[Rfam]
RNA sequence: UAACUAAAUCGGUAGGUGAGACUACCAUAGGGAUACGGAUGACUACCGCAAAAUAGUGGAGACACUAUACGCUGGUCAGCAGUCUUUGUCGUUAAGGCACAGACUAAUGUCAUUUCAUCGCCCUAUGAUGUUAAAGCUUGAACGGUGAGAGAAUCU
Numbered sequence: 001u002a003a004c005u006a007a008a009u010c011g012g013u014a015g016g017u018g019a020g021a022c023u024a025c026c027a028u029a030g031g032g033a034u035a036c037g038g039a040u041g042a043c044u045a046c047c048g049c050a051a052a053a054u055a056g057u058g059g060a061g062a063c064a065c066u067a068u069a070c071g072c073u074g075g076u077c078a079g080c081a082g083u084c085u086u087u088g089u090c091g092u093u094a095a096g097g098c099a100c101a102g103a104c105u106a107a108u109g110u111c112a113u114u115u116c117a118u119c120g121c122c123c124u125a126u127g128a129u130g131u132u133a134a135a136g137c138u139u140g141a142a143c144g145g146u147g148a149g150a151g152a153a154u155c156u
Stems, first nucleotide, its partner, number of pairs: 005152001009148002011143001013095001015138003020132003026127007039113005046074001048072002055066004082104004088098003